[Rfam]
About this RNA: The record is a 75-nucleotide sequence from Crocodylus porosus, which matches "Mammalian CPEB3 ribozyme" in Rfam. A reference for the family is Salehi-Ashtiani et al. (2006), "A genomewide search for ribozymes reveals an HDV-like sequence in the human CPEB3 gene", Science. Its family is annotated with RNA nuclease activity in the Gene Ontology. Rfam 15.1 lists 5,706 matches to the family in 197 species. The organism belongs to Crocodylus, within Eukaryota.
RNA sequence: AUCGCAAGUUUGAGGCCAAAGCAGAAGUGCUCAUGGCAUGGCCUGACAGAUUCCAAUCAAUCGGAAAAUUCUGUU
Numbered sequence: 001a002u003c004g005c006a007a008g009u010u011u012g013a014g015g016c017c018a019a020a021g022c023a024g025a026a027g028u029g030c031u032c033a034u035g036g037c038a039u040g041g042c043c044u045g046a047c048a049g050a051u052u053c054c055a056a057u058c059a060a061u062c063g064g065a066a067a068a069u070u071c072u073g074u075u
Stems, first nucleotide, its partner, number of pairs: 014043004020075007027039003047064001049062004